Notes
The family of this 297-nucleotide sequence from Thrips palmi is "Metazoan signal recognition particle RNA". A search with the family's covariance model found it, with a score of 238 bits. The family is grouped with related families in Rfam's "SRP clan". Lineage of the source: Eukaryota > Metazoa > Protostomia > Ecdysozoa > Thrips. For this family Rfam cites "Structural and energetic analysis of RNA recognition by a universally conserved protein from the signal recognition particle" (Batey et al., J Mol Biol, 2001). Pairs were carried over by alignment from the consensus structure, which is taken from published work.
RNA sequence: GCUGGGAGCGUGGCACACUCCUGUAAUCCUGCUACUGGGAGGCCGGGAGAUGAGGAUGGUUUGAGGCUGGGAGCCCUGCUGCACAGUGAGGCAUGUAGACUGGGCGUCCGCACGAAGCUUGCCGUCAAUAUGGGCACCUUGGAGGAGUCCGAGGUGGCCAGGUUGGCUAACGAGGGGCGAACCGGGCCAGAGGGGUAACCCAGCAGCCAAAAGUCCUCGCGGUGAGCAGUCGUGGGAUCGCGCCUGGGAGUGGGAGCUGUGUGGCAGCCUGGUCAAUAUAGUCAGACCAUUUCCUUU
Numbered sequence: 001g002c003u004g005g006g007a008g009c010g011u012g013g014c015a016c017a018c019u020c021c022u023g024u025a026a027u028c029c030u031g032c033u034a035c036u037g038g039g040a041g042g043c044c045g046g047g048a049g050a051u052g053a054g055g056a057u058g059g060u061u062u063g064a065g066g067c068u069g070g071g072a073g074c075c076c077u078g079c080u081g082c083a084c085a086g087u088g089a090g091g092c093a094u095g096u097a098g099a100c101u102g103g104g105c106g107u108c109c110g111c112a113c114g115a116a117g118c119u120u121g122c123c124g125u126c127a128a129u130a131u132g133g134g135c136a137c138c139u140u141g142g143a144g145g146a147g148u149c150c151g152a153g154g155u156g157g158c159c160a161g162g163u164u165g166g167c168u169a170a171c172g173a174g175g176g177g178c179g180a181a182c183c184g185g186g187c188c189a190g191a192g193g194g195g196u197a198a199c200c201c202a203g204c205a206g207c208c209a210a211a212a213g214u215c216c217u218c219g220c221g222g223u224g225a226g227c228a229g230u231c232g233u234g235g236g237a238u239c240g241c242g243c244c245u246g247g248g249a250g251u252g253g254g255a256g257c258u259g260u261g262u263g264g265c266a267g268c269c270u271g272g273u274c275a276a277u278a279u280a281g282u283c284a285g286a287c288c289a290u291u292u293c294c295u296u297u
Stems, first nucleotide, its partner, number of pairs: 001043003004022005010016002027040003045295008057284005065274007076267012092252003096248001100247008108236002111234005117227009126165004131160003135156009174217005185208003192201003